[Rfam]
RNA sequence: AAAGUAGCAAUACACCAUGUCUUGAUAAAGCAAGACAUGGGGUAUUGCUACUUUGGGU
Numbered sequence: 001a002a003a004g005u006a007g008c009a010a011u012a013c014a015c016c017a018u019g020u021c022u023u024g025a026u027a028a029a030g031c032a033a034g035a036c037a038u039g040g041g042g043u044a045u046u047g048c049u050a051c052u053u054u055g056g057g058u
Stems, first nucleotide, its partner, number of pairs: 001054013019036006
RNA: Plastid-psbA-3 3UTR RNA